[Rfam]
RNA sequence: UGGCGCCACAAGUGGGGCUUGGAUACUGAGGCAGCAGUGAGGGAAAGGACGUGAAAAGGAAGGCAUUCGACAAAUUUUGAGACACAUCAGAGCCGCUGUGGGAAACUGCCUUGGCUGAAACCGAAAGUAAGUGGAAACGUCCGAUCAUGGGGCAAGAAUUGAGUCAACAUGAGCUGUAGGUUAAGCAGUUAAAAGAGGCUUCAAAGACACGGGGAGUAAAGGUUAAAACUAUAGAUUUAUUUCAUUUCUUUGAUUUUGUAAAGGACACUUGUCCCU
Numbered sequence: 001u002g003g004c005g006c007c008a009c010a011a012g013u014g015g016g017g018c019u020u021g022g023a024u025a026c027u028g029a030g031g032c033a034g035c036a037g038u039g040a041g042g043g044a045a046a047g048g049a050c051g052u053g054a055a056a057a058g059g060a061a062g063g064c065a066u067u068c069g070a071c072a073a074a075u076u077u078u079g080a081g082a083c084a085c086a087u088c089a090g091a092g093c094c095g096c097u098g099u100g101g102g103a104a105a106c107u108g109c110c111u112u113g114g115c116u117g118a119a120a121c122c123g124a125a126a127g128u129a130a131g132u133g134g135a136a137a138c139g140u141c142c143g144a145u146c147a148u149g150g151g152g153c154a155a156g157a158a159u160u161g162a163g164u165c166a167a168c169a170u171g172a173g174c175u176g177u178a179g180g181u182u183a184a185g186c187a188g189u190u191a192a193a194a195g196a197g198g199c200u201u202c203a204a205a206g207a208c209a210c211g212g213g214g215a216g217u218a219a220a221g222g223u224u225a226a227a228a229c230u231a232u233a234g235a236u237u238u239a240u241u242u243c244a245u246u247u248c249u250u251u252g253a254u255u256u257u258g259u260a261a262a263g264g265a266c267a268c269u270u271g272u273c274c275c276u
Stems, first nucleotide, its partner, number of pairs: 006031002012026003038046001084128002087124002094117001097113002100110002138152001140151004160203003163199003210252007220238005261276001263274004